The family of this 110-nucleotide sequence from Paenibacillus sp. D9 is "TPP riboswitch aptamer (THI element)".
The family's consensus secondary structure is taken from published work.
Its family is annotated with thiamine pyrophosphate binding in the Gene Ontology.
Vitamin B(1) in its active form thiamin pyrophosphate (TPP) is an essential coenzyme that is synthesised by coupling of pyrimidine and thiazole moieties in bacteria. The previously detected thiamin-regulatory element, thi box was extended, resulting in a new, highly conserved RNA secondary structure, the THI element, which is widely distributed in eubacteria and also occurs in some archaea. Analysis of operon structures identified a large number of new candidate thiamin-regulated genes, mostly transporters, in various prokaryotic organisms. The THI element is a riboswitch that directly binds to TPP to regulate gene expression through a variety of mechanisms in archaea, bacteria and eukaryotes. through a variety of mechanisms in archaea, bacteria and eukaryotes.
[Rfam]
RNA sequence: CAUAGCAUGCAUGGGGGCUCGAUGAAGUCGGGCUGAGACUGCGGCCGUAUGCCGCUGACCAUUGAUCUGAUCUGGGUAAUGCCAGCGUAGAGAGAAUGCACCGCGCCGCC
Numbered sequence: 001c002a003u004a005g006c007a008u009g010c011a012u013g014g015g016g017g018c019u020c021g022a023u024g025a026a027g028u029c030g031g032g033c034u035g036a037g038a039c040u041g042c043g044g045c046c047g048u049a050u051g052c053c054g055c056u057g058a059c060c061a062u063u064g065a066u067c068u069g070a071u072c073u074g075g076g077u078a079a080u081g082c083c084a085g086c087g088u089a090g091a092g093a094g095a096a097u098g099c100a101c102c103g104c105g106c107c108g109c110c
Stems, first nucleotide, its partner, number of pairs: 006098003010094001011062004016056001017033005041055004066091004072085004